Record summary: This 243-nucleotide RNA sequence from Lachancea dasiensis belongs to the Rfam family "Small nucleolar RNA snR80". Its family is annotated with RNA processing and nucleolus in the Gene Ontology. Taxonomically the source falls in Lachancea (Eukaryota, saccharomyceta, Saccharomycotina, Saccharomycetaceae). On this family, see Schattner et al., Nucleic Acids Res 2004: "Genome-wide searching for pseudouridylation guide snoRNAs: analysis of the Saccharomyces cerevisiae genome". The family is grouped with related families in Rfam's "SNORA28 clan". A search with the family's covariance model found it, with a score of 88 bits. By type it is an H/ACA-box small nucleolar RNA.
RNA sequence: CACAGUUUGUCUACACUCUGGAUCUCAGCCAGGGAUUUCAGUGGGUUUUGUUCAAUGUGGAACGUUUCGACAAGUACACGUUGGGCUGGCCCGUGAAUCUCUAAUUCUAACUCCGUGUUGAGCUCCAAUUUAAUAGCAAACAAGAUUUAUUCUGUCAAUUACUCACCAAGAUAUAUCGAGCAGAGGGGUGUUCUCAGAAUUCCUCUCGCAGUGGUUAUAUUGGUCCAUUUCAAUGACAAACAU
Numbered sequence: 001c002a003c004a005g006u007u008u009g010u011c012u013a014c015a016c017u018c019u020g021g022a023u024c025u026c027a028g029c030c031a032g033g034g035a036u037u038u039c040a041g042u043g044g045g046u047u048u049u050g051u052u053c054a055a056u057g058u059g060g061a062a063c064g065u066u067u068c069g070a071c072a073a074g075u076a077c078a079c080g081u082u083g084g085g086c087u088g089g090c091c092c093g094u095g096a097a098u099c100u101c102u103a104a105u106u107c108u109a110a111c112u113c114c115g116u117g118u119u120g121a122g123c124u125c126c127a128a129u130u131u132a133a134u135a136g137c138a139a140a141c142a143a144g145a146u147u148u149a150u151u152c153u154g155u156c157a158a159u160u161a162c163u164c165a166c167c168a169a170g171a172u173a174u175a176u177c178g179a180g181c182a183g184a185g186g187g188g189u190g191u192u193c194u195c196a197g198a199a200u201u202c203c204u205c206u207c208g209c210a211g212u213g214g215u216u217a218u219a220u221u222g223g224u225c226c227a228u229u230u231c232a233a234u235g236a237c238a239a240a241c242a243u
Stems, first nucleotide, its partner, number of pairs: 007139003019127004024122001026120004031102008153238004166223004171218003175215003